[Rfam]
RNA sequence: GCUGUCGGGCCUCGUGAGGCCUCGGUCCGCUCGGCUUUCGCCUCCUGGUGCAUCUUCCCCGGUACCAGGAAGCGACGGGCGGGCGGGGACCUGACGAGAUCCGGCGCUCGAC
Numbered sequence: 001g002c003u004g005u006c007g008g009g010c011c012u013c014g015u016g017a018g019g020c021c022u023c024g025g026u027c028c029g030c031u032c033g034g035c036u037u038u039c040g041c042c043u044c045c046u047g048g049u050g051c052a053u054c055u056u057c058c059c060c061g062g063u064a065c066c067a068g069g070a071a072g073c074g075a076c077g078g079g080c081g082g083g084c085g086g087g088g089a090c091c092u093g094a095c096g097a098g099a100u101c102c103g104g105c106g107c108u109c110g111a112c
Stems, first nucleotide, its partner, number of pairs: 011098005018091002021088003025084009039074003043070009

mraW RNA: a 112-nucleotide RNA from Saccharopolyspora rhizosphaerae. The source organism's lineage runs through Bacteria, Bacillati, Actinomycetes, Pseudonocardiaceae and Saccharopolyspora. A search with the family's covariance model found it, with a score of 59 bits. It is annotated as a cis-regulatory element.